RNA sequence: CGUGUGGUACCUGUGCAGGAGUGACCUGGCACGGGAGAGCGACACGGCCUUCACUGAGGU
Numbered sequence: 001c002g003u004g005u006g007g008u009a010c011c012u013g014u015g016c017a018g019g020a021g022u023g024a025c026c027u028g029g030c031a032c033g034g035g036a037g038a039g040c041g042a043c044a045c046g047g048c049c050u051u052c053a054c055u056g057a058g059g060u
Base pairs, nucleotide, nucleotide: 001046002045003044004043005042007040008039010035011034012033013032014031015030
RNA: L31-Gammaproteobacteria ribosomal protein leader